[Rfam]
Nucleotides: 115
Stems, first nucleotide, its partner, number of pairs: 002114005009107005015101001018098008027089018049067004
Number, partner (000 for none) and nucleotide at each position: 001000a002114u003113a004112u005111a006110a007000a008000c009107a010106a011105a012104g013103a014000u015101u016000c017000c018098u019097u020096u021095u022094u023093c024092a025091g026000a027089u028088u029087c030086a031085u032084u033083g034082a035081a036080u037079a038078a039077c040076u041075g042074a043073u044072g045000u046000a047000u048000c049067u050066g051065g052064u053000c054000c055000g056000u057000a058000u059000u060000a061000u062000g063000u064052a065051u066050c067049a068000g069000a070000u071000a072044c073043a074042u075041c076040a077039g078038u079037u080036a081035u082034u083033c084032a085031a086030u087029g088028a089027a090000c091025c092024u093023g094022a095021a096020a097019a098018a099000u100000a101015a102000a103013u104012c105011u106010u107009u108000g109000c110006u111005u112004a113003u114002a115000u